[Rfam]
RNA sequence: CGCCAAGGUAUCCUUACGAACUCCUUGCUGUUGCUUCUUGCUGUACCUUUGGUA
Numbered sequence: 001c002g003c004c005a006a007g008g009u010a011u012c013c014u015u016a017c018g019a020a021c022u023c024c025u026u027g028c029u030g031u032u033g034c035u036u037c038u039u040g041c042u043g044u045a046c047c048u049u050u051g052g053u054a
Stems, first nucleotide, its partner, number of pairs: 002053005007047005018041001020039001027034002
RNA: Avian HBV RNA encapsidation signal epsilon